[Rfam]
RNA sequence: CCGGCGAAUGCCGGUGGAACUACAGAACGCAAAGGUCGCGGGUUCGACUCCCGUCAGCCGCAAGGCUGUAGCUCAGCGGAUAGAGCACUGCGCAUGUUUCGCCACGAAUUGUCGCCGCAAU
Numbered sequence: 001c002c003g004g005c006g007a008a009u010g011c012c013g014g015u016g017g018a019a020c021u022a023c024a025g026a027a028c029g030c031a032a033a034g035g036u037c038g039c040g041g042g043u044u045c046g047a048c049u050c051c052c053g054u055c056a057g058c059c060g061c062a063a064g065g066c067u068g069u070a071g072c073u074c075a076g077c078g079g080a081u082a083g084a085g086c087a088c089u090g091c092g093c094a095u096g097u098u099u100c101g102c103c104a105c106g107a108a109u110u111g112u113c114g115c116c117g118c119a120a121u
Base pairs, nucleotide, nucleotide: 002117003116004115005114006113007112013103014102015101016100017099018098019097023092029091030090031089038054039053040052041051042050055068056067057066058065059064071086072085073084074083
Annotation: This 121-nucleotide RNA belongs to the Rfam family "Y RNA-like". Rfam's curators write: In Deinococcus radiodurans Rsr is tethered via Y RNA to the exoribonuclease PNPase and channels single-stranded RNA into the PNPase cavity. Rsr and Y RNA enhance degradation of structured RNAs by PNPase. This role could be conserved, as Rsr and ncRNAs called YrlA and YrlB (Y RNA like) also associate with PNPase in an evolutionary distant bacterium Salmonella Typhimurium. On this family, see Chen et al., Cell 2013: "An RNA degradation machine sculpted by Ro autoantigen and noncoding RNA".